[Rfam]
RNA sequence: GGAUAACAAUUUUUGCUAUCCCCAACCAAUAAUGCAAUGACACGUAGGAUAACUUUUUCACGUGUCAUUAUGUUAUUGGUUAGGGAUAGCAAAACAAUGUUAUCC
Numbered sequence: 001g002g003a004u005a006a007c008a009a010u011u012u013u014u015g016c017u018a019u020c021c022c023c024a025a026c027c028a029a030u031a032a033u034g035c036a037a038u039g040a041c042a043c044g045u046a047g048g049a050u051a052a053c054u055u056u057u058u059c060a061c062g063u064g065u066c067a068u069u070a071u072g073u074u075a076u077u078g079g080u081u082a083g084g085g086a087u088a089g090c091a092a093a094a095c096a097a098u099g100u101u102a103u104c105c
Base pairs, nucleotide, nucleotide: 002104003103004102005101011094012093013092014091015090016089017088018087019086021084022083024081025080026079027078028077029076030075031074032073033072034071036069037068038067039066040065041064042063043062044061045060047058048057049056
This 105-nucleotide RNA from Prunus avium belongs to the Rfam family "MIR6274 microRNA precursor family". Rfam 15.1 lists 342 matches to the family in 8 species. It scores 82 bits against the family's covariance model.